[Rfam]
RNA sequence: CAAUGCCGUGCGGGAGAGUUCCGGGUUCGUCCCGGACGCCGAAGGAGCAGCACCUCCCCGUCAAUCUCUCAGGCACAAGGGACCGUGCGGGCAGU
Numbered sequence: 001c002a003a004u005g006c007c008g009u010g011c012g013g014g015a016g017a018g019u020u021c022c023g024g025g026u027u028c029g030u031c032c033c034g035g036a037c038g039c040c041g042a043a044g045g046a047g048c049a050g051c052a053c054c055u056c057c058c059c060g061u062c063a064a065u066c067u068c069u070c071a072g073g074c075a076c077a078a079g080g081g082a083c084c085g086u087g088c089g090g091g092c093a094g095u
Stems, first nucleotide, its partner, number of pairs: 006090008020036004038074003041070002045068003052061002
RNA: Glycine riboswitch aptamer